[Rfam]
RNA: TPP riboswitch aptamer (THI element)
RNA sequence: GCUGGGGAACACGGGAGUCCGGUGGUCCGGGCUGAGAGGAAGGCACGAGCCUUCGACCGUCGAACCUGAUCCGGAUCAUGCCGGCGCAGGGAGACCUUCUCGGUGAGGC
Numbered sequence: 001g002c003u004g005g006g007g008a009a010c011a012c013g014g015g016a017g018u019c020c021g022g023u024g025g026u027c028c029g030g031g032c033u034g035a036g037a038g039g040a041a042g043g044c045a046c047g048a049g050c051c052u053u054c055g056a057c058c059g060u061c062g063a064a065c066c067u068g069a070u071c072c073g074g075a076u077c078a079u080g081c082c083g084g085c086g087c088a089g090g091g092a093g094a095c096c097u098u099c100u101c102g103g104u105g106a107g108g109c
Stems, first nucleotide, its partner, number of pairs: 006097002010093001011060004017032005039054005065090004071084004